RNA sequence: GUCGGGUAUGGGGACAUGUGCCCAAUCACAAUGGGGGGCAAGAUCGUGGGCACGCUGUGUGCCAUCGCCGGGGUGCUGACCAUCGCCCUGCCCGUGCCCGUCAUCGUCUCCAAC
Numbered sequence: 001g002u003c004g005g006g007u008a009u010g011g012g013g014a015c016a017u018g019u020g021c022c023c024a025a026u027c028a029c030a031a032u033g034g035g036g037g038g039c040a041a042g043a044u045c046g047u048g049g050g051c052a053c054g055c056u057g058u059g060u061g062c063c064a065u066c067g068c069c070g071g072g073g074u075g076c077u078g079a080c081c082a083u084c085g086c087c088c089u090g091c092c093c094g095u096g097c098c099c100g101u102c103a104u105c106g107u108c109u110c111c112a113a114c
Stems, first nucleotide, its partner, number of pairs: 001114002004111002008107004013102003018097004037077004049063003
Rfam assigns this 114-nucleotide RNA from Albula goreensis to the family "Potassium channel RNA editing signal".
Rfam links the family to the GO term adenosine to inosine editing.
This family represents a group of sequences related to the human potassium channel Kv1.1 hairpin element which directs the efficient modification of an adenosine to inosine by an adenosine deaminase acting on RNA (ADAR). The ADAR modification causes an isoleucine/valine recoding event which lies in the ion-conducting pore of the potassium channel. It is thought that this editing event targets the process of fast inactivation and allows a more rapid recovery from inactivation at negative potentials.
The organism belongs to Albula, within Eukaryota.
The match comes from Rfam's covariance-model search (116 bits).